[Rfam]
Glycine riboswitch aptamer: an 88-nucleotide RNA sequence from Propionispira arboris. From the family's description: This family represents the bacterial glycine riboswitch. Rfam links the family to the GO term glycine biosynthetic process.
RNA sequence: AUGAUGGUUAUAGGAGAGAUCGCGAAAGCGGCGCCGAAGGAGCAAGAACUUUGUCAAACUCUCAGGUAAAAAGAACCAUAACCGGACU
Numbered sequence: 001a002u003g004a005u006g007g008u009u010a011u012a013g014g015a016g017a018g019a020u021c022g023c024g025a026a027a028g029c030g031g032c033g034c035c036g037a038a039g040g041a042g043c044a045a046g047a048a049c050u051u052u053g054u055c056a057a058a059c060u061c062u063c064a065g066g067u068a069a070a071a072a073g074a075a076c077c078a079u080a081a082c083c084g085g086a087c088u
Base pairs, nucleotide, nucleotide: 006083007082008081009080010079011078013076020031021030022029023028033067034066035065036063037062040061041060042059046055047054